Shown here is a 74-nucleotide RNA from Acinetobacter phage YMC13/03/R2096, a member of the family "tRNA". Rfam's curators write: Transfer RNA (tRNA) molecules are approximately 80 nucleotides in length. The family's RNA type in Rfam is transfer RNA.
RNA sequence: AGGACGUUAGCUCAGUUGGUUAGAGCAAGAGCCUUUUAAGUUCGAGGUCAUAGGUUCAAAUCCUAUACGUCCUA
Numbered sequence: 001a002g003g004a005c006g007u008u009a010g011c012u013c014a015g016u017u018g019g020u021u022a023g024a025g026c027a028a029g030a031g032c033c034u035u036u037u038a039a040g041u042u043c044g045a046g047g048u049c050a051u052a053g054g055u056u057c058a059a060a061u062c063c064u065a066u067a068c069g070u071c072c073u074a
Base pairs, nucleotide, nucleotide: 001073002072003071004070005069006068007067010026011025012024013023029043030042031041032040050066051065052064053063054062
Dot-bracket structure: (((((((..((((.........))))..((((.......))))......(((((.......)))))))))))).